[Rfam]
Background:
mir-219 microRNA precursor family: a 129-nucleotide RNA sequence from Blomia tropicalis. Taxonomically the source falls in Blomia (Eukaryota, Metazoa, Eumetazoa, Protostomia). A search with the family's covariance model found it, with a score of 62 bits.

RNA sequence: CUUAACGAUGAUUGUCCAAACGCAAUUCUUGAUUUCGUUUCUAUUUAAAUGUUUACAAAUUAAACUUUUAGAUAUGAUACGAAAACGUUUACUAAGAAGCAAGAACUGUGUGUGGACAUCAAUGUUCAG
Numbered sequence: 001c002u003u004a005a006c007g008a009u010g011a012u013u014g015u016c017c018a019a020a021c022g023c024a025a026u027u028c029u030u031g032a033u034u035u036c037g038u039u040u041c042u043a044u045u046u047a048a049a050u051g052u053u054u055a056c057a058a059a060u061u062a063a064a065c066u067u068u069u070a071g072a073u074a075u076g077a078u079a080c081g082a083a084a085a086c087g088u089u090u091a092c093u094a095a096g097a098a099g100c101a102a103g104a105a106c107u108g109u110g111u112g113u114g115g116a117c118a119u120c121a122a123u124g125u126u127c128a129g
Stems, first nucleotide, its partner, number of pairs: 002128001004126004009121004014117005021110004026105006

The literature on the family includes a 2003 paper in Genome Biol by Lai et al., "Computational identification of Drosophila microRNA genes".